This 77-nucleotide RNA sequence from Novosphingobium aureum belongs to the Rfam family "Makes More Granules Regulator RNA (mmgR)".
[Rfam]
Nucleotides: 077
Base pairs, nucleotide, nucleotide: 008018009017010016011015040062041061042060043059044058045057046056047055048054
Number, partner (000 for none) and nucleotide at each position: 001000a002000g003000a004000a005000c006000c007000u008018g009017c010016c011015u012000u013000u014000c015011a016010g017009g018008c019000a020000u021000c022000c023000u024000c025000u026000c027000c028000c029000a030000a031000a032000a033000c034000u035000u036000c037000c038000a039000c040062g041061g042060c043059u044058c045057g046056g047055g048054c049000u050000u051000c052000a053000c054048g055047u056046c057045c058044g059043g060042g061041c062040c063000u064000u065000u066000u067000u068000u069000u070000u071000u072000u073000g074000g075000c076000c077000u
On this family, see Corbino et al., Genome Biol 2005: "Evidence for a second class of S-adenosylmethionine riboswitches and other regulatory RNA motifs in alpha-proteobacteria". A search with the family's covariance model found it, with a score of 56 bits. Gene Ontology terms of the family: protein binding, response to nitrogen compound and DNA-templated transcription, termination. NCBI's taxonomy places the organism under Bacteria, Pseudomonadati, Alphaproteobacteria, Sphingomonadales, Novosphingobium. Rfam classes the family as a small RNA. Rfam's curators write: SuhB later renamed mmgR (makes more granules regulator) was a putative non-coding RNA found multiple times in the Agrobacterium tumefaciens genome and related alpha-proteobacteria.